The record is an 86-nucleotide sequence from Citreicella sp. C3M06, which matches "Glycine riboswitch aptamer" in Rfam.

RNA sequence: GCAUUCGCGAUGGGAGAACCGGCUUUGCCGGUGCCGAAGGAGCAACCGCCCCGGAAACUCUCAGGCUUCAGGACCGUCGCGGGUAU
Numbered sequence: 001g002c003a004u005u006c007g008c009g010a011u012g013g014g015a016g017a018a019c020c021g022g023c024u025u026u027g028c029c030g031g032u033g034c035c036g037a038a039g040g041a042g043c044a045a046c047c048g049c050c051c052c053g054g055a056a057a058c059u060c061u062c063a064g065g066c067u068u069c070a071g072g073a074c075c076g077u078c079g080c081g082g083g084u085a086u
Stems, first nucleotide, its partner, number of pairs: 006081008019031004033066003036062002040060003046054002
Description
The pairing is the family consensus, mapped onto this sequence. Gene Ontology term of the family: glycine biosynthetic process.